[Rfam]
RNA sequence: AAAAGUAGCAGAUAAGAAUUGUGAGAAUCAAUUCCGCCGAAAGGGCUAAGGGUUCCUUGGCAAUGUUCGUCAGCCGAGGGUUAGUCGAUCCUAAGGUUAUUCCUAACAGGAGAUGACCGAAUGGGAAGACGGUUAAUAUUCCGUCACCAUGAAUGUUUUGCCAUUAAUGAAGGUUCGAGAUAAGGGGAGUACACUUGCCUGUGUAUUUCUAAUUAUAAGUGGAUGGAGAGUUGUAAUGACGUAAAGUCUGCAAAAAAUUAGCAGUUCCCGUUUGGGAAUUCCUUUAAUUCUUGGAUCCUGUGAAAACCAUUAAUGGGUCAAGUUCAUGUUCGUACCAAGAACCGACACAGGUGCCCCUGGAUGAGAAGUCCAAGGCGUUU
Dot-bracket structure: ...............((((((.......))))))((((....((((...((...((((((...((.....)).))))))......(((.((...(((((((((.....))).))))))....))...(((((........)))))..(((((((.................(((((((((..(((((((((((........))))))...((((.....(((((...(.(((.....))).)...))))).....)))).........(....)......)))))...)))))))))........................))))))).)))..)).....((......)).)))).((((.......)))).))))...
The record is a 380-nucleotide part of an RNA from Thermoplasmatales archaeon Gpl, which matches "Archaeal large subunit ribosomal RNA" in Rfam. Rfam's curators put it in the seed alignment. Taxonomically the source falls in Thermoplasmatales (Archaea, Methanobacteriati, Thermoplasmatota, Thermoplasmata).